[Rfam]
RNA sequence: AUCUUAUCAAGAGAAGCUGAGGGAAAUGGCCCUAUGAAGCUUCAGCAACCUCUGCUCUGCAGAAAGGUGCUAAGUCCUACAAGACAACUGUCUUGGAAGAUAAGAA
Numbered sequence: 001a002u003c004u005u006a007u008c009a010a011g012a013g014a015a016g017c018u019g020a021g022g023g024a025a026a027u028g029g030c031c032c033u034a035u036g037a038a039g040c041u042u043c044a045g046c047a048a049c050c051u052c053u054g055c056u057c058u059g060c061a062g063a064a065a066g067g068u069g070c071u072a073a074g075u076c077c078u079a080c081a082a083g084a085c086a087a088c089u090g091u092c093u094u095g096g097a098a099g100a101u102a103a104g105a106a
Stems, first nucleotide, its partner, number of pairs: 002105007013043005021032003028077002044071004049067002051063004075098001080095006
Dot-bracket structure: .(((((((....(((((...(((....[[)))......)))))((((.((((((.....))))..))))))...(]]..((((((....))))))..)))))))).
Source information: Shown here is a 106-nucleotide RNA sequence from Rummeliibacillus sp. TYF005, a member of the family "SAM riboswitch aptamer (S box leader)". The source organism's lineage runs through Bacteria, Bacillati, Bacillota, Bacilli and Rummeliibacillus. Pairs were carried over by alignment from the consensus structure, which is taken from published work.